[Rfam]
RNA sequence: GGAUAUCAUUGUUUUGCUAUUCCCGACCAAUAACACAAUGAUACGUGGAAAAGUUAUCCUACAUGUUAUUGCGUUAUUGGCUGGGGAUAGCAAAAAGUGUUAUCC
Numbered sequence: 001g002g003a004u005a006u007c008a009u010u011g012u013u014u015u016g017c018u019a020u021u022c023c024c025g026a027c028c029a030a031u032a033a034c035a036c037a038a039u040g041a042u043a044c045g046u047g048g049a050a051a052a053g054u055u056a057u058c059c060u061a062c063a064u065g066u067u068a069u070u071g072c073g074u075u076a077u078u079g080g081c082u083g084g085g086g087a088u089a090g091c092a093a094a095a096a097g098u099g100u101u102a103u104c105c
Stems, first nucleotide, its partner, number of pairs: 002104004012095009022085004027080008036071008045062004050057001
Shown here is a 105-nucleotide RNA from Prunus yedoensis, a member of the family "MIR6274 microRNA precursor family". Pairs were carried over by alignment from the consensus structure, which was predicted with RNAalifold. The organism belongs to Prunus yedoensis, within Eukaryota.